Rfam assigns this 99-nucleotide sequence from Brassica carinata to the family "MIR403 microRNA precursor family".
The family has 13 seed sequences and 215 matches in Rfam 15.1.
Its family is annotated with miRNA-mediated post-transcriptional gene silencing and RISC complex in the Gene Ontology.
For this family Rfam cites "High throughput approaches reveal splicing of primary microRNA transcripts and tissue specific expression of mature microRNAs in Vitis vinifera" (Mica et al., BMC Genomics, 2009).
The family's consensus secondary structure was predicted with WAR.
[Rfam]
Nucleotides: 099
Base pairs, nucleotide, nucleotide: 002096003095005093006092007091012086013085015084016083017082018081019080020079021078022077023076024075025074026073027072029070030069031068033066034065
Number, partner (000 for none) and nucleotide at each position: 001000u002096c003095a004000u005093a006092u007091u008000a009000c010000a011000u012086g013085u014000u015084u016083u017082g018081u019080g020079c021078g022077u023076g024075a025074a026073u027072c028000u029070a030069a031068u032000u033066c034065a035000u036000a037000a038000g039000c040000u041000c042000a043000u044000g045000u046000a047000g048000u049000a050000a051000u052000c053000c054000u055000a056000a057000c058000a059000u060000g061000u062000u063000g064000u065034u066033g067000g068031a069030u070029u071000a072027g073026a074025u075024u076023c077022a078021c079020g080019c081018a082017c083016a084015a085013a086012c087000u088000c089000g090000u091007a092006a093005u094000c095003u096002g097000u098000c099000u